The family of this 110-nucleotide RNA from Gossypium gossypioides is "Plant small nucleolar RNA R71".
The literature on the family includes a 2003 paper in Trends Plant Sci by Brown et al., "Plant snoRNAs: functional evolution and new modes of gene expression".
Rfam classes the family as a C/D-box small nucleolar RNA.
Gene Ontology terms of the family: nucleolus and RNA processing.
The family has 25 seed sequences and 278,378 matches in Rfam 15.1.
The source organism's lineage runs through Eukaryota, Viridiplantae, Embryophyta, Spermatophyta and Gossypium.
[Rfam]
RNA sequence: AAUCCGUGGUGUGGGCACUUCCUUAGUAUUUACUUGAAAUGUUCCCAUGCCUCGUAUAGGGAUUCACAUUCGUAUUGUUUAAAAUUGACGAUUUCUCGCUAUAGCAGAAU
Dot-bracket structure: (.(((...................................................((.(..........).)).............................)..)).)